[Rfam]
RNA sequence: ACACGAGAGGGGAGGUGGUCCAAAGUUGAAUACUUAUCGGACUCGUGAGGUGGCUACUUCCUAGCCGCAUCUCAACGGACUCCGGUCCGAACCGUCGCCUAGUGCACGUGAGACGGCGGUGAGGCAAACCAAGGUAACCACCGACCCCUCGGGCUGCUGGCAUUGUCCGACCAGCCUCGCGGUAAUACGCGAGAAGUAGCCCGGGGGGCUUUUAUU
Number, nucleotide and partner (000 for none) at each position: 001a000002c000003a000004c000005g000006a000007g000008a000009g000010g000011g000012g000013a000014g058015g057016u056017g055018g054019u053020c000021c000022a000023a000024a000025g000026u000027u000028g000029a000030a000031u000032a000033c000034u000035u000036a000037u000038c000039g000040g000041a000042c000043u000044c000045g000046u000047g000048a000049g000050g000051u000052g000053g019054c018055u017056a016057c015058u014059u000060c124061c123062u122063a000064g120065c119066c000067g117068c116069a000070u000071c000072u111073c110074a109075a000076c000077g000078g000079a000080c000081u000082c000083c000084g000085g000086u000087c000088c000089g000090a000091a000092c000093c000094g000095u000096c000097g000098c000099c000100u000101a000102g000103u000104g000105c000106a000107c000108g000109u074110g073111a072112g000113a000114c000115g000116g068117c067118g000119g065120u064121g000122a062123g061124g060125c000126a000127a000128a000129c000130c000131a000132a000133g000134g000135u000136a000137a000138c000139c000140a000141c000142c000143g210144a000145c208146c207147c206148c205149u204150c203151g202152g201153g200154c199155u198156g175157c174158u173159g172160g171161c000162a000163u000164u000165g000166u000167c000168c000169g000170a000171c160172c159173a158174g157175c156176c000177u000178c000179g000180c000181g000182g000183u000184a000185a000186u000187a000188c000189g000190c000191g000192a000193g000194a000195a000196g000197u000198a155199g154200c153201c152202c151203g150204g149205g148206g147207g146208g145209c000210u143211u000212u000213u000214a000215u000216u000